[Rfam]
RNA sequence: GGCAAAUAGGGAGGCGAAGAAGCCAGGCCUGCAAUACGGUCACCUCGGUCUGGCAGAGCUAGUGGUGAGACCGGACCUAUCCCAC
Numbered sequence: 001g002g003c004a005a006a007u008a009g010g011g012a013g014g015c016g017a018a019g020a021a022g023c024c025a026g027g028c029c030u031g032c033a034a035u036a037c038g039g040u041c042a043c044c045u046c047g048g049u050c051u052g053g054c055a056g057a058g059c060u061a062g063u064g065g066u067g068a069g070a071c072c073g074g075a076c077c078u079a080u081c082c083c084a085c
Stems, first nucleotide, its partner, number of pairs: 001085001006080005013060003022054008038072002040068005

Shown here is an 85-nucleotide RNA, a member of the family "c-di-GMP-II-GAG riboswitch aptamer". The family is grouped with related families in Rfam's "c-di-GMP_II riboswitch clan". Rfam's curators put it in the seed alignment. Pairs were carried over by alignment from the consensus structure, which is taken from published work. Its family is annotated with cyclic-di-GMP binding and regulation of gene expression in the Gene Ontology.